RNA: Bacterial large signal recognition particle RNA
RNA sequence: CCGUGCAGCCGGGGAGAUAGCGGUGCCUUGUACCUGCAAUCCGCUACAGCAGGGGUGAUGUCCUGUCUGAGGGUCAUAUCCUGUGGAGCUGCCCUGUAUAAGUGGCGUUGAAGCCUGGGUCUUGCGCAACAGAAACCCGUGAACCGUGUCAGGUCAGGAAUGGAGCAGCACUAAGCGGGAUCUUUUGUGUGCCGCGAGGGUGCCUGGGCUGAGUUAACUGUACAGGUAACGUCUGUGGGAGUGAUUCGAAGCAGGAUGCACGG
Numbered sequence: 001c002c003g004u005g006c007a008g009c010c011g012g013g014g015a016g017a018u019a020g021c022g023g024u025g026c027c028u029u030g031u032a033c034c035u036g037c038a039a040u041c042c043g044c045u046a047c048a049g050c051a052g053g054g055g056u057g058a059u060g061u062c063c064u065g066u067c068u069g070a071g072g073g074u075c076a077u078a079u080c081c082u083g084u085g086g087a088g089c090u091g092c093c094c095u096g097u098a099u100a101a102g103u104g105g106c107g108u109u110g111a112a113g114c115c116u117g118g119g120u121c122u123u124g125c126g127c128a129a130c131a132g133a134a135a136c137c138c139g140u141g142a143a144c145c146g147u148g149u150c151a152g153g154u155c156a157g158g159a160a161u162g163g164a165g166c167a168g169c170a171c172u173a174a175g176c177g178g179g180a181u182c183u184u185u186u187g188u189g190u191g192c193c194g195c196g197a198g199g200g201u202g203c204c205u206g207g208g209c210u211g212a213g214u215u216a217a218c219u220g221u222a223c224a225g226g227u228a229a230c231g232u233c234u235g236u237g238g239g240a241g242u243g244a245u246u247c248g249a250a251g252c253a254g255g256a257u258g259c260a261c262g263g
Base pairs, nucleotide, nucleotide: 001263002262003261004260005259006258008056009055010054011029012028013027014026016024018022033053034052035051036050037049062255063254064253065252066251068249071247072246073245074244075243079240080239081238082237083236084235085234086233087232090228091227094225095224096223097222098221099220102218103217104215105214106213112210113209114208115207116206117205118204119203120202121198122197123196124195125194126193127189128188130187131186132185133184134183136179137178138177139176140175146171147170148169149168154163155162156161